[Rfam]
The family of this 35-nucleotide sequence is "DUF805b RNA". It is one of the family's seed sequences.

RNA sequence: AUGGAGGAAGCCGAAAAUCCUUUGAAGAGUAGGCG
Numbered sequence: 001a002u003g004g005a006g007g008a009a010g011c012c013g014a015a016a017a018u019c020c021u022u023u024g025a026a027g028a029g030u031a032g033g034c035g
Stems, first nucleotide, its partner, number of pairs: 003020003010034003